Nitrogen stress-induced RNA 1: a 62-nucleotide sequence from Anabaena sp. FACHB-1237.
The organism belongs to Anabaena, within Bacteria.
The literature on the family includes a 2010 paper in J Mol Biol by Ionescu et al., "Heterocyst-specific transcription of NsiR1, a non-coding RNA encoded in a tandem array of direct repeats in cyanobacteria".
It is annotated as a small RNA.

RNA sequence: UGGUAGAUGCACCUUGAUCUUCAACUCCCCUAGUAGGCUAACACCAUCUAGGGGAUUUCUUU
Numbered sequence: 001u002g003g004u005a006g007a008u009g010c011a012c013c014u015u016g017a018u019c020u021u022c023a024a025c026u027c028c029c030c031u032a033g034u035a036g037g038c039u040a041a042c043a044c045c046a047u048c049u050a051g052g053g054g055a056u057u058u059c060u061u062u
Stems, first nucleotide, its partner, number of pairs: 002013003027054007036045002